[Rfam]
RNA sequence: GCCUCCGUAGCCCAAUCGGUAGAGGCAAGCGACUUAAAAUCGCUGUGUUAUGGGUUCGAGUCCCAUCGGAGGCA
Dot-bracket structure: (((((((..(((...........))).(((((.......))))).....(((((.......)))))))))))).